A member of the RNA family "c-di-AMP riboswitch aptamer (ydaO/yuaA leader)" from Streptomyces sp. adm13(2018), 156 nucleotides long.
RNA sequence: CUCGAAAUACCUCCCUUUCACCCGACGGCAGGAGCGGGGGACCCACGAAUACGCCGGCCCGGAUUCCGGAACGGCUCGGGGUGAAGCCGCGUGCGCGCGGCCGGACAUCUCCAGUCCGAACCCGACAGCUCACCCCGAAGGCGCCGGAGAGGAAUC
Numbered sequence: 001c002u003c004g005a006a007a008u009a010c011c012u013c014c015c016u017u018u019c020a021c022c023c024g025a026c027g028g029c030a031g032g033a034g035c036g037g038g039g040g041a042c043c044c045a046c047g048a049a050u051a052c053g054c055c056g057g058c059c060c061g062g063a064u065u066c067c068g069g070a071a072c073g074g075c076u077c078g079g080g081g082u083g084a085a086g087c088c089g090c091g092u093g094c095g096c097g098c099g100g101c102c103g104g105a106c107a108u109c110u111c112c113a114g115u116c117c118g119a120a121c122c123c124g125a126c127a128g129c130u131c132a133c134c135c136c137g138a139a140g141g142c143g144c145c146g147g148a149g150a151g152g153a154a155u156c
Stems, first nucleotide, its partner, number of pairs: 001032002035137005044078001079123003087100004103117004
NCBI's taxonomy places the organism under Bacteria, Actinomycetota, Kitasatosporales, Streptomycetaceae, Streptomyces. This family represents a conserved RNA structure found upstream of the ydaO and yuaA genes in Bacillus subtilis and related genes in other bacteria. The ydaO/yuaA element is thought to act as a genetic 'off' switch for the ydaO and yuaA genes in its native state. It is believed that the element may be triggered during osmotic shock leading to activation of ydaO, a predicted amino acid transporter gene, and members of the yuaA-yubG operon which code for KtrA and KtrB K+ transporters. The pairing is the family consensus, mapped onto this sequence.